[Rfam]
RNA sequence: AUGAACAUGACAGGAGAGAUCUUUUCCGUGGUUUGCAACCACUGAAAAGGCACCGAAGAGGUAAAUCUUUCAGGUAAAAGGACUGUUAUGGGACG
Number, nucleotide and partner (000 for none) at each position: 001a000002u000003g000004a000005a000006c090007a089008u088009g087010a086011c085012a084013g083014g000015a000016g000017a000018g000019a000020u050021c049022u048023u047024u046025u045026c044027c000028g000029u000030g000031g000032u000033u000034u000035g000036c000037a000038a000039c000040c000041a000042c000043u000044g026045a025046a024047a023048a022049g021050g020051c000052a075053c074054c073055g071056a070057a000058g000059a069060g068061g067062u000063a000064a000065a000066u000067c061068u060069u059070u056071c055072a000073g054074g053075u052076a000077a000078a000079a000080g000081g000082a000083c013084u012085g011086u010087u009088a008089u007090g006091g000092g000093a000094c000095g000
Rfam assigns this 95-nucleotide RNA from Desulforapulum autotrophicum to the family "Glycine riboswitch aptamer".